RNA sequence: GCGCUAUUAGCUCAGCUGGAUAGAGUGUUUGGCUACGAACCAAAAGGUCGGGGGUUCGAAUCCCUCAUAGCGCG
Numbered sequence: 001g002c003g004c005u006a007u008u009a010g011c012u013c014a015g016c017u018g019g020a021u022a023g024a025g026u027g028u029u030u031g032g033c034u035a036c037g038a039a040c041c042a043a044a045a046g047g048u049c050g051g052g053g054g055u056u057c058g059a060a061u062c063c064c065u066c067a068u069a070g071c072g073c074g
Base pairs, nucleotide, nucleotide: 001073002072003071004070005069006068007067010026011025012024013023028044029043030042031041032040050066051065052064053063054062
This 74-nucleotide RNA sequence from Qingrenia yutianensis belongs to the Rfam family "tRNA". Rfam classes the family as a transfer RNA. It scores 67 bits against the family's covariance model. NCBI's taxonomy places the organism under Bacteria, Bacillati, Bacillota, Clostridia, Qingrenia.